[Rfam]
RNA sequence: AAAAUAAAGGAGCAAUAAUCCCUCUUGAUAGAACAAGAAAGAGUUUAUUGCUCCUUAUA
Numbered sequence: 001a002a003a004a005u006a007a008a009g010g011a012g013c014a015a016u017a018a019u020c021c022c023u024c025u026u027g028a029u030a031g032a033a034c035a036a037g038a039a040a041g042a043g044u045u046u047a048u049u050g051c052u053c054c055u056u057a058u059a
Base pairs, nucleotide, nucleotide: 007056008055009054010053011052012051013050014049015048016047017046019042020041023038024037025036026035027034

This 59-nucleotide sequence from Sesamum indicum belongs to the Rfam family "Plastid-psbA-4 3UTR RNA". The family's RNA type in Rfam is cis-regulatory element. The family's consensus secondary structure was predicted with LocARNA. On this family, see Richter et al., Plant Commun 2023: "Retrograde signaling in plants: A critical review focusing on the GUN pathway and beyond". Plastid psbA-4 is a non-coding RNA (ncRNA) present in plastids. Its Rfam clan is "Plastid-psbA 3UTR RNA clan".